[Rfam]
RNA sequence: UAGUAGAAGAAGCCUGAACCUUCUCAAAAAACGGGGCGUAUUCUGAAAAGCCAUAAGAGUAGGAAAUAU
Numbered sequence: 001u002a003g004u005a006g007a008a009g010a011a012g013c014c015u016g017a018a019c020c021u022u023c024u025c026a027a028a029a030a031a032c033g034g035g036g037c038g039u040a041u042u043c044u045g046a047a048a049a050g051c052c053a054u055a056a057g058a059g060u061a062g063g064a065a066a067u068a069u
Base pairs, nucleotide, nucleotide: 006023007022008021009020035052036051037050042063043062
The family of this 69-nucleotide RNA sequence from Arcicella rosea is "DUF805 RNA". It is annotated as a cis-regulatory element. The base pairs follow the family's consensus structure, which is taken from published work. The source organism's lineage runs through Bacteria, Pseudomonadati, Bacteroidota, Cytophagia and Arcicella.